Background: Rfam assigns this 73-nucleotide RNA from Xanthomonas campestris to the family "Xanthomonas sRNA sX9". A reference for the family is Schmidtke et al. (2011), "Genome-wide transcriptome analysis of the plant pathogen Xanthomonas identifies sRNAs with putative virulence functions", Nucleic Acids Res. The organism belongs to Xanthomonas campestris pv. campestris, within Bacteria.

RNA sequence: AUGGCCACCGUACCUUCCGAUUCCUCCGCACCGUCCGCGCCUAGCUGACGAUUGCUCGCUUUGUCUGUUAGCC
Numbered sequence: 001a002u003g004g005c006c007a008c009c010g011u012a013c014c015u016u017c018c019g020a021u022u023c024c025u026c027c028g029c030a031c032c033g034u035c036c037g038c039g040c041c042u043a044g045c046u047g048a049c050g051a052u053u054g055c056u057c058g059c060u061u062u063g064u065c066u067g068u069u070a071g072c073c
Stems, first nucleotide, its partner, number of pairs: 003013001004011002018033002021030001023028001045071006

Rfam 15.1 lists 309 matches to the family in 52 species. The family's consensus secondary structure was predicted with RNAalifold.